About this RNA
This 35-nucleotide sequence belongs to the Rfam family "DUF805b RNA". Rfam classes the family as a cis-regulatory element. Rfam's curators put it in the seed alignment.
RNA sequence: AACGCAGAAGCCGAAAAGCGAAAAUAGAGUAGGCA
Numbered sequence: 001a002a003c004g005c006a007g008a009a010g011c012c013g014a015a016a017a018g019c020g021a022a023a024a025u026a027g028a029g030u031a032g033g034c035a
Base pairs, nucleotide, nucleotide: 003020004019005018010034011033012032